[Rfam]
RNA: Bacterial RNase P class A
Organism: Corynebacterium meridianum
RNA sequence: UGAGUCGACCGGGCGGUCGCGGCCGGUGAAACGACGGACGGGUUCACCCCCGUCCGUGCAGACACCGCGCCGAGGAAAGUCCGGACUCCACAGUGGCAGGGUGGUUGUCAACGGCAACCCAGGGUGACCUGCGGGACAGUGCCACAGAAAACAAACCGCCCCGGGUCCCGGGAAACCGGGUCGCGGGGUAAGGGUGAAACGGUGCGGUAAGAGCGCACCAGCACCGCAGGUGACUGCGGUGGCUAGGUAAACCCCACCCGGAGCAAGGUGAGAGGGCGCAUAAACGGGUUUCAUCGAAUAGACCCUGAUGUGCCUGCGCGGACGAUUGAGGGCUGCCCGCCCGAGUCCGCGGGUCGACCGCUUGAGGCGCCCAGCGAUGGUGCGUCCAGAUGGAUGACCGCCACCGCGCCGGUCACACGGCGCGGCACAGAAUCCGGCUUACAGGUCGACUCAUUCG
Numbered sequence: 001u002g003a004g005u006c007g008a009c010c011g012g013g014c015g016g017u018c019g020c021g022g023c024c025g026g027u028g029a030a031a032c033g034a035c036g037g038a039c040g041g042g043u044u045c046a047c048c049c050c051c052g053u054c055c056g057u058g059c060a061g062a063c064a065c066c067g068c069g070c071c072g073a074g075g076a077a078a079g080u081c082c083g084g085a086c087u088c089c090a091c092a093g094u095g096g097c098a099g100g101g102u103g104g105u106u107g108u109c110a111a112c113g114g115c116a117a118c119c120c121a122g123g124g125u126g127a128c129c130u131g132c133g134g135g136a137c138a139g140u141g142c143c144a145c146a147g148a149a150a151a152c153a154a155a156c157c158g159c160c161c162c163g164g165g166u167c168c169c170g171g172g173a174a175a176c177c178g179g180g181u182c183g184c185g186g187g188g189u190a191a192g193g194g195u196g197a198a199a200c201g202g203u204g205c206g207g208u209a210a211g212a213g214c215g216c217a218c219c220a221g222c223a224c225c226g227c228a229g230g231u232g233a234c235u236g237c238g239g240u241g242g243c244u245a246g247g248u249a250a251a252c253c254c255c256a257c258c259c260g261g262a263g264c265a266a267g268g269u270g271a272g273a274g275g276g277c278g279c280a281u282a283a284a285c286g287g288g289u290u291u292c293a294u295c296g297a298a299u300a301g302a303c304c305c306u307g308a309u310g311u312g313c314c315u316g317c318g319c320g321g322a323c324g325a326u327u328g329a330g331g332g333c334u335g336c337c338c339g340c341c342c343g344a345g346u347c348c349g350c351g352g353g354u355c356g357a358c359c360g361c362u363u364g365a366g367g368c369g370c371c372c373a374g375c376g377a378u379g380g381u382g383c384g385u386c387c388a389g390a391u392g393g394a395u396g397a398c399c400g401c402c403a404c405c406g407c408g409c410c411g412g413u414c415a416c417a418c419g420g421c422g423c424g425g426c427a428c429a430g431a432a433u434c435c436g437g438c439u440u441a442c443a444g445g446u447c448g449a450c451u452c453a454u455u456c457g
Stems, first nucleotide, its partner, number of pairs: 001453010011442001012402007020072004024067005077440003081437005086263004095337003099259005104118005119133001120131004134254002139252002141248003156193002158189006165182001201219006221243001222241008267359003276350003280346002330342004366386005371380003
Dot-bracket structure: ((((((((((((((((((.(((((((((..................................))))).))))....[[[.[[[[[((((.....[[[.((((((((((.....)))))(((((....)))).)((...(((((............((((((((.(................).))))))..)).......((((((.......)))))).(((((((((....)))))))).)..)))..)))))))))))))...(((......(((.((................................................((((.]]].))))..)).)))......)))......((((((((....))).))))).........)))))))..............................]]]]]]]].).))))))))))....